[Rfam]
RNA: SAM riboswitch aptamer (S box leader)
Organism: Actinoplanes aureus
RNA sequence: ACCUCAUCCAGAGGGGCUGAGGGAUACGGCCCGUUGACGCCCCGGCAACCACCAAGCAUGUCUCGAAGACGAGGCCGAGCUUGGCAGGUGCUAAUUCCGUCCCCGUAAUGGCAGGUCGCCGCGGGGAAAGAUGAGAG
Numbered sequence: 001a002c003c004u005c006a007u008c009c010a011g012a013g014g015g016g017c018u019g020a021g022g023g024a025u026a027c028g029g030c031c032c033g034u035u036g037a038c039g040c041c042c043c044g045g046c047a048a049c050c051a052c053c054a055a056g057c058a059u060g061u062c063u064c065g066a067a068g069a070c071g072a073g074g075c076c077g078a079g080c081u082u083g084g085c086a087g088g089u090g091c092u093a094a095u096u097c098c099g100u101c102c103c104c105g106u107a108a109u110g111g112c113a114g115g116u117c118g119c120c121g122c123g124g125g126g127a128a129a130g131a132u133g134a135g136a137g
Base pairs, nucleotide, nucleotide: 003135004134005133006132007131008130013043014042015041016040017039021032022031023030026100027099028098029097044092045091046090047089049088050087052084053083054082055081056080057079096129101126102125103124104123105122106121